[Rfam]
The family of this 85-nucleotide RNA sequence from Glaesserella parasuis is "sRNA-Xcc1".
A reference for the family is Chen et al. (2011), "sRNA-Xcc1, an integron-encoded transposon- and plasmid-transferred trans-acting sRNA, is under the positive control of the key virulence regulators HrpG and HrpX of Xanthomonas campestris pathovar campestris", RNA Biol.
The family's RNA type in Rfam is small RNA.
RNA sequence: GCCGAGGGGGCGAGGAAUACAACACCCGAAAGGGGAAUAACUCCAGCCGUCUUUGUAGGGCUUUCGAACCCCUUGGCACCCUAUU
Numbered sequence: 001g002c003c004g005a006g007g008g009g010g011c012g013a014g015g016a017a018u019a020c021a022a023c024a025c026c027c028g029a030a031a032g033g034g035g036a037a038u039a040a041c042u043c044c045a046g047c048c049g050u051c052u053u054u055g056u057a058g059g060g061c062u063u064u065c066g067a068a069c070c071c072c073u074u075g076g077c078a079c080c081c082u083a084u085u
Base pairs, nucleotide, nucleotide: 001077002076003075004074005073006072007071008070009069014043016038025034026033027032045062046061047060048059050057